Shown here is an 86-nucleotide RNA sequence from Ferroacidibacillus organovorans, a member of the family "ZMP/ZTP riboswitch aptamer (pfl RNA motif)". The family's consensus secondary structure is taken from published work. Taxonomically the source falls in Ferroacidibacillus (Bacteria, Bacillati, Caryophanales, Alicyclobacillaceae).
RNA sequence: GGGACGUUGCAUGACUGGCGGAACGUAACGUGGAGUAACCACGAUGGAGUGUAACGUCGAUAACGCCGACCGCCUGGGCACAACUU
Numbered sequence: 001g002g003g004a005c006g007u008u009g010c011a012u013g014a015c016u017g018g019c020g021g022a023a024c025g026u027a028a029c030g031u032g033g034a035g036u037a038a039c040c041a042c043g044a045u046g047g048a049g050u051g052u053a054a055c056g057u058c059g060a061u062a063a064c065g066c067c068g069a070c071c072g073c074c075u076g077g078g079c080a081c082a083a084c085u086u
Stems, first nucleotide, its partner, number of pairs: 003058010015046001017074005030042004065079003